[Rfam]
RNA sequence: GAGCUUGUUGACAACGUGCCCAGUCGGGACGGGCCGCCAGAUCGUAAACACGCCGUGAAUAUGUCCCUAUAGGCUCGAUCCGCGCCAUCCCUGGCGCGGACGGUUU
Numbered sequence: 001g002a003g004c005u006u007g008u009u010g011a012c013a014a015c016g017u018g019c020c021c022a023g024u025c026g027g028g029a030c031g032g033g034c035c036g037c038c039a040g041a042u043c044g045u046a047a048a049c050a051c052g053c054c055g056u057g058a059a060u061a062u063g064u065c066c067c068u069a070u071a072g073g074c075u076c077g078a079u080c081c082g083c084g085c086c087a088u089c090c091c092u093g094g095c096g097c098g099g100a101c102g103g104u105u106u
Stems, first nucleotide, its partner, number of pairs: 013106002017102002020028002031076003040065003044062003050056002080099008
Rfam assigns this 106-nucleotide RNA sequence from Sodalis ligni to the family "Yersinia sRNA 224".
The match comes from Rfam's covariance-model search (74 bits).